[Rfam]
RNA sequence: GAUUGGUCUGUCUCUGUGGUCCCACCCCGUUUUGGGGCUGCUUUAGUACAUCCCACUCUAGAGACCAAAGCAGUCCCAAAACGGGGUGGGACCACAGAGACAGACCAAUCUGUA
Numbered sequence: 001g002a003u004u005g006g007u008c009u010g011u012c013u014c015u016g017u018g019g020u021c022c023c024a025c026c027c028c029g030u031u032u033u034g035g036g037g038c039u040g041c042u043u044u045a046g047u048a049c050a051u052c053c054c055a056c057u058c059u060a061g062a063g064a065c066c067a068a069a070g071c072a073g074u075c076c077c078a079a080a081a082c083g084g085g086g087u088g089g090g091a092c093c094a095c096a097g098a099g100a101c102a103g104a105c106c107a108a109u110c111u112g113u114a
Stems, first nucleotide, its partner, number of pairs: 010101007018093002021090024046065002
The record is a 114-nucleotide RNA from Microcaecilia unicolor, which matches "mraW RNA" in Rfam.
Taxonomically the source falls in Microcaecilia (Eukaryota, Metazoa, Craniata, Gnathostomata).
A search with the family's covariance model found it, with a score of 63 bits.
By type it is a cis-regulatory element.